The record is a 504-nucleotide part of an RNA from uncultured marine group III euryarchaeote AD1000-40-D7, which matches "Archaeal small subunit ribosomal RNA" in Rfam. Its Rfam clan is "SSU clan". For this family Rfam cites "Crystal structure of the ribosome at 5.5 A resolution" (Yusupov et al., Science, 2001). The sequence is in the family's curated seed alignment. Lineage of the source: Archaea > Methanobacteriati > Thermoplasmatota > Thermoplasmata > Candidatus Thermoprofundales.
RNA sequence: ACUUCGGUUGAUCCUGCCGAAGGCUACUGCUAUUGGAGUUCGAUUAAGCCAUGCGAGUCUAAGGGAUCUUCGGAUCCCUGGCGUAAUGCUCAGUAACACGUGGAUAAUCUACCCUCAGGUGGGGCAUAAACCCGGGAAACUGGGGCCAAUUCCCCAUAGAUACAGAUGGCUGGAAUGCUUCUGUAUUCAAAGCUCCGGCGCCUGAGGAUGAGUCUGCGGCCUAUCAGGUUGUAGUCAGGGUCAUGACCUGACUAGCCAGCGACGGGUAUGGGGUGUGAGAGCACUUGCCCAGAGAUGGUUUCUGAGACACGAAACCAGGCCUUCCGGGGGCGCAGCAGGCGCGAAAACUUCGCAAUGCGGGAAACCGUGACGAGGGAACUCCAAGUGUCUAUGCAUUGCAUAGACUGUUUUUUAGCCUAAAUAGCUAUUAGAGUAAGGGGUGGGCAAGACCGGUGCCAGCCGCCGCGGUAACACCGGCACCCCGAGUGGUAGCCACUAUUAUUG
Numbered sequence: 001a002c003u004u005c006g007g008u009u010g011a012u013c014c015u016g017c018c019g020a021a022g023g024c025u026a027c028u029g030c031u032a033u034u035g036g037a038g039u040u041c042g043a044u045u046a047a048g049c050c051a052u053g054c055g056a057g058u059c060u061a062a063g064g065g066a067u068c069u070u071c072g073g074a075u076c077c078c079u080g081g082c083g084u085a086a087u088g089c090u091c092a093g094u095a096a097c098a099c100g101u102g103g104a105u106a107a108u109c110u111a112c113c114c115u116c117a118g119g120u121g122g123g124g125c126a127u128a129a130a131c132c133c134g135g136g137a138a139a140c141u142g143g144g145g146c147c148a149a150u151u152c153c154c155c156a157u158a159g160a161u162a163c164a165g166a167u168g169g170c171u172g173g174a175a176u177g178c179u180u181c182u183g184u185a186u187u188c189a190a191a192g193c194u195c196c197g198g199c200g201c202c203u204g205a206g207g208a209u210g211a212g213u214c215u216g217c218g219g220c221c222u223a224u225c226a227g228g229u230u231g232u233a234g235u236c237a238g239g240g241u242c243a244u245g246a247c248c249u250g251a252c253u254a255g256c257c258a259g260c261g262a263c264g265g266g267u268a269u270g271g272g273g274u275g276u277g278a279g280a281g282c283a284c285u286u287g288c289c290c291a292g293a294g295a296u297g298g299u300u301u302c303u304g305a306g307a308c309a310c311g312a313a314a315c316c317a318g319g320c321c322u323u324c325c326g327g328g329g330g331c332g333c334a335g336c337a338g339g340c341g342c343g344a345a346a347a348c349u350u351c352g353c354a355a356u357g358c359g360g361g362a363a364a365c366c367g368u369g370a371c372g373a374g375g376g377a378a379c380u381c382c383a384a385g386u387g388u389c390u391a392u393g394c395a396u397u398g399c400a401u402a403g404a405c406u407g408u409u410u411u412u413u414a415g416c417c418u419a420a421a422u423a424g425c426u427a428u429u430a431g432a433g434u435a436a437g438g439g440g441u442g443g444g445c446a447a448g449a450c451c452g453g454u455g456c457c458a459g460c461c462g463c464c465g466c467g468g469u470a471a472c473a474c475c476g477g478c479a480c481c482c483c484g485a486g487u488g489g490u491a492g493c494c495a496c497u498a499u500u501a502u503u504g
Base pairs, nucleotide, nucleotide: 004020005019006018007017008016022494023493024492025491026490027489028488029487030486031485033384034383035382036381037380038379039378040377041376042342048340049339050338052337053336054335057082058081059080062079063078064077065076066075067074068073089294090293091292099218100217101216102215103214104213105212108211109210113207114206115205116204117203118202119201121155122154123153124152131144132143133142134141135140160186161185162184163183164182165181166180169178170177192199193198220266221265222264227257228256229255232254233253234252235251236250237249238248239247269291270290271289272288273284274283275282276281296317297316298315299314300313301312319331320330321329322328348374350373351372352371356369357368358367359366360365387405388404389403390402391401392400393399394398410430413427414426415425416424437483438482439481440480441479442478450477451476452475453474459466460465